[Rfam]
RNA: Bacterial RNase P class A
Organism: Fulvivirga sediminis
RNA sequence: AAUGUAAGCCGCCUUAUCGCUUCAUUUAAUUGAAGAGGAAAGUCCGGGCAGCAUAGGGCAUCGUACUUCCUAACGGGAAGGGCUUCUCUUUGGAGGAGUACAGACAGUGCCACAGAAAACAAACUACCUUGUGCAAACAGGGAAAAGGUGAAAAGGCGAGGUAAGAGCUCACCGCCCCAAUGGUAACUGCGGGGGCACGGUAAACCUUACGAGCUGAAAGAUCAAAUAAGUUGCAUAUGCCUCCGGGCAGUCAGGCGGCCCGUCUGGCUCUUUUAUAGAGAUGUAACGGGUAGAUCGAUAGAUCGUAGCAGCGAUGCUGCGGCUAGAUAAAUGAUAAGGGCCUGAACUUUCAGGAACAGAACCCGGCUUAUAGGCUUAUAUUUUUU
Numbered sequence: 001a002a003u004g005u006a007a008g009c010c011g012c013c014u015u016a017u018c019g020c021u022u023c024a025u026u027u028a029a030u031u032g033a034a035g036a037g038g039a040a041a042g043u044c045c046g047g048g049c050a051g052c053a054u055a056g057g058g059c060a061u062c063g064u065a066c067u068u069c070c071u072a073a074c075g076g077g078a079a080g081g082g083c084u085u086c087u088c089u090u091u092g093g094a095g096g097a098g099u100a101c102a103g104a105c106a107g108u109g110c111c112a113c114a115g116a117a118a119a120c121a122a123a124c125u126a127c128c129u130u131g132u133g134c135a136a137a138c139a140g141g142g143a144a145a146a147g148g149u150g151a152a153a154a155g156g157c158g159a160g161g162u163a164a165g166a167g168c169u170c171a172c173c174g175c176c177c178c179a180a181u182g183g184u185a186a187c188u189g190c191g192g193g194g195g196c197a198c199g200g201u202a203a204a205c206c207u208u209a210c211g212a213g214c215u216g217a218a219a220g221a222u223c224a225a226a227u228a229a230g231u232u233g234c235a236u237a238u239g240c241c242u243c244c245g246g247g248c249a250g251u252c253a254g255g256c257g258g259c260c261c262g263u264c265u266g267g268c269u270c271u272u273u274u275a276u277a278g279a280g281a282u283g284u285a286a287c288g289g290g291u292a293g294a295u296c297g298a299u300a301g302a303u304c305g306u307a308g309c310a311g312c313g314a315u316g317c318u319g320c321g322g323c324u325a326g327a328u329a330a331a332u333g334a335u336a337a338g339g340g341c342c343u344g345a346a347c348u349u350u351c352a353g354g355a356a357c358a359g360a361a362c363c364c365g366g367c368u369u370a371u372a373g374g375c376u377u378a379u380a381u382u383u384u385u386u
Stems, first nucleotide, its partner, number of pairs: 001382010011371001012339007020035005040369003044366005049216004056276001058274001061212005066080005081101001082099007102207002107205002109201003124147002127142006155173002158170003174196001175194004182187001220296004230287006268280004303322008